[Rfam]
RNA: MIR8024 microRNA precursor family
RNA sequence: UUAAAUUGAAGACUUCAUGUAUACUUGGAAGAUUUGAAGACUUCAGCUUGCAUACUUGGAGGAUUUGAAGACUUCAAAU
Numbered sequence: 001u002u003a004a005a006u007u008g009a010a011g012a013c014u015u016c017a018u019g020u021a022u023a024c025u026u027g028g029a030a031g032a033u034u035u036g037a038a039g040a041c042u043u044c045a046g047c048u049u050g051c052a053u054a055c056u057u058g059g060a061g062g063a064u065u066u067g068a069a070g071a072c073u074u075c076a077a078a079u
Base pairs, nucleotide, nucleotide: 006068007067008066009065010064013061014060015059016058017057018052019051020050021049025046026045027044028043029042